[Rfam]
Notes: Rfam assigns this 73-nucleotide RNA from Myotis brandtii to the family "mir-9223 microRNA precursor family". The family's consensus secondary structure was predicted with RNAalifold. Rfam links the family to the GO terms miRNA-mediated post-transcriptional gene silencing and RISC complex.
RNA sequence: GACGAUUCUCAGGUGACGCACCCUGAAAUUGGGCUUCCUCCUCUCUGGUUCUGGGUGGGUCACCCAAGAACCA
Numbered sequence: 001g002a003c004g005a006u007u008c009u010c011a012g013g014u015g016a017c018g019c020a021c022c023c024u025g026a027a028a029u030u031g032g033g034c035u036u037c038c039u040c041c042u043c044u045c046u047g048g049u050u051c052u053g054g055g056u057g058g059g060u061c062a063c064c065c066a067a068g069a070a071c072c073a
Stems, first nucleotide, its partner, number of pairs: 006070004012064006019057005025052001027050007